[Rfam]
RNA sequence: GUCAAUGAUGAGUUUGCUUCAGGAAUCUCGUUCGGCUGAAUGUUGCUGUUGAGAAUCGGAAUCUGAGCUUC
Numbered sequence: 001g002u003c004a005a006u007g008a009u010g011a012g013u014u015u016g017c018u019u020c021a022g023g024a025a026u027c028u029c030g031u032u033c034g035g036c037u038g039a040a041u042g043u044u045g046c047u048g049u050u051g052a053g054a055a056u057c058g059g060a061a062u063c064u065g066a067g068c069u070u071c
Base pairs, nucleotide, nucleotide: 026054027053028052029051030050033048034047035046036045
Rfam assigns this 71-nucleotide sequence from Phrynocephalus forsythii to the family "Small nucleolar RNA SNORD30". NCBI's taxonomy places the organism under Eukaryota, Deuterostomia, Chordata, Agaminae, Phrynocephalus. It scores 60 bits against the family's covariance model. Rfam 15.1 lists 367 matches to the family in 268 species. The literature on the family includes a 1996 paper in Nature by Tycowski et al., "A mammalian gene with introns instead of exons generating stable RNA products". Gene Ontology terms of the family: RNA processing and nucleolus.